[Rfam]
RNA: TPP riboswitch aptamer (THI element)
RNA sequence: UCGAAUCCGUUGGGGUGCCCUUUCCGGGGCUGAGAGGCGAAAGCCAACCCAUCGAACCUGAUCCGGGCAAUACCGGCGUAGGAAACGGAGUGCGAUCUGGC
Dot-bracket structure: .....(((((((((..(((((....)))))......((....))...)))).....((((..((((......))))..))))..)))))............
Numbered sequence: 001u002c003g004a005a006u007c008c009g010u011u012g013g014g015g016u017g018c019c020c021u022u023u024c025c026g027g028g029g030c031u032g033a034g035a036g037g038c039g040a041a042a043g044c045c046a047a048c049c050c051a052u053c054g055a056a057c058c059u060g061a062u063c064c065g066g067g068c069a070a071u072a073c074c075g076g077c078g079u080a081g082g083a084a085a086c087g088g089a090g091u092g093c094g095a096u097c098u099g100g101c
Stems, first nucleotide, its partner, number of pairs: 006089005011051004017030005037044002057082004063076004